[Rfam]
RNA sequence: CCAGAAUUCCCUGCUAGUGGCCCCAGGUGUCCUACAGAAAAGCCUGGGAUGGCUCCUAUUCAGGGGGUCUGG
Number, nucleotide and partner (000 for none) at each position: 001c072002c071003a070004g069005a000006a068007u067008u066009c065010c064011c063012u000013g000014c000015u058016a057017g000018u000019g056020g055021c000022c048023c047024c046025a045026g044027g043028u042029g035030u034031c000032c000033u000034a030035c029036a000037g000038a000039a000040a000041a000042g028043c027044c026045u025046g024047g023048g022049a000050u000051g000052g000053c000054u000055c020056c019057u016058a015059u000060u000061c000062a000063g011064g010065g009066g008067g007068u006069c004070u003071g002072g001

Record summary: The record is a 72-nucleotide RNA from Crocodylus porosus, which matches "MAT2A 3'UTR stem loop E" in Rfam. The literature on the family includes a 2011 paper in Genome Res by Parker et al., "New families of human regulatory RNA structures identified by comparative analysis of vertebrate genomes". The organism belongs to Crocodylus, within Eukaryota. The base pairs follow the family's consensus structure, which is taken from published work. A search with the family's covariance model found it, with a score of 52 bits.